[Rfam]
RNA sequence: AUGCAUGUCGCGGGAGAGAGCGGGCCAUAGGCCCGCCGCCGAAGGCGCAAUUCGCCCGGAAUCGCUCAGGUAACCCAUACCGCGCAUUGCUC
Numbered sequence: 001a002u003g004c005a006u007g008u009c010g011c012g013g014g015a016g017a018g019a020g021c022g023g024g025c026c027a028u029a030g031g032c033c034c035g036c037c038g039c040c041g042a043a044g045g046c047g048c049a050a051u052u053c054g055c056c057c058g059g060a061a062u063c064g065c066u067c068a069g070g071u072a073a074c075c076c077a078u079a080c081c082g083c084g085c086a087u088u089g090c091u092c
Stems, first nucleotide, its partner, number of pairs: 009084005020036004038071003041067002045065003052058001
This 92-nucleotide RNA sequence from Bordetella avium belongs to the Rfam family "Glycine riboswitch aptamer". From the family's description: This family represents the bacterial glycine riboswitch. Glycine riboswitches usually consist of two metabolite-binding aptamers domains with similar structures in tandem. The aptamers cooperatively bind glycine to regulate the expression of downstream genes. In Bacillus subtilis, this riboswitch is found upstream of the gcvT operon which controls glycine degradation. Pairs were carried over by alignment from the consensus structure. The source organism's lineage runs through Bacteria, Pseudomonadota, Betaproteobacteria, Burkholderiales and Bordetella avium.